[Rfam]
RNA sequence: UGGCCAAGGAUGAGAACUCUCAUCUGAUUGGAGAUGCUUCCACUCUGAUGGGUAAAAGGAUUUACCUGAGGCCG
Number, nucleotide and partner (000 for none) at each position: 001u000002g073003g072004c071005c070006a000007a000008g000009g000010a000011u000012g000013a000014g000015a000016a000017c000018u000019c000020u000021c000022a000023u000024c000025u000026g000027a000028u000029u000030g000031g000032a000033g000034a000035u000036g000037c000038u000039u000040c000041c000042a000043c000044u000045c000046u000047g000048a000049u000050g000051g000052g000053u000054a000055a000056a000057a000058g000059g000060a000061u000062u000063u000064a000065c000066c000067u000068g000069a000070g005071g004072c003073c002074g000
The record is a 74-nucleotide RNA sequence from Phyllostomus discolor, which matches "Small nucleolar RNA SNORD93" in Rfam.
The family has 17 seed sequences and 491 matches in Rfam 15.1.
Rfam links the family to the GO terms RNA processing and nucleolus.
A reference for the family is Galardi et al. (2002), "Purified box C/D snoRNPs are able to reproduce site-specific 2'-O-methylation of target RNA in vitro", Mol Cell Biol.
The match comes from Rfam's covariance-model search (92 bits).